[Rfam]
RNA sequence: CGCUGGAGACGACUCCAGCGCCUUUCUCUUUUCCGGGACGGCCCG
Numbered sequence: 001c002g003c004u005g006g007a008g009a010c011g012a013c014u015c016c017a018g019c020g021c022c023u024u025u026c027u028c029u030u031u032u033c034c035g036g037g038a039c040g041g042c043c044c045g
Base pairs, nucleotide, nucleotide: 001020002019003018004017005016006015007014008013034045035044036043037042

This 45-nucleotide RNA sequence from Phenylobacterium glaciei belongs to the Rfam family "Guanidine-II riboswitch aptamer (mini-ykkC)". The match comes from Rfam's covariance-model search (44 bits).